[Rfam]
RNA: MIR394 microRNA precursor family
Organism: Hevea brasiliensis
RNA sequence: AUUGCAGAGCCAUUUUGGCAUUCUGUCCACCUCCAUUUUUAUAUAAGGUGUUAAUUCUUGGCAUGGUGUGAUUCUUGGAGGCGGCCAGCAUGCCAAACUGGCUCUGUAAA
Numbered sequence: 001a002u003u004g005c006a007g008a009g010c011c012a013u014u015u016u017g018g019c020a021u022u023c024u025g026u027c028c029a030c031c032u033c034c035a036u037u038u039u040u041a042u043a044u045a046a047g048g049u050g051u052u053a054a055u056u057c058u059u060g061g062c063a064u065g066g067u068g069u070g071a072u073u074c075u076u077g078g079a080g081g082c083g084g085c086c087a088g089c090a091u092g093c094c095a096a097a098c099u100g101g102c103u104c105u106g107u108a109a110a
Base pairs, nucleotide, nucleotide: 011100015096016095017094018093019092020091024087025086027084028083030081031080032079033078034077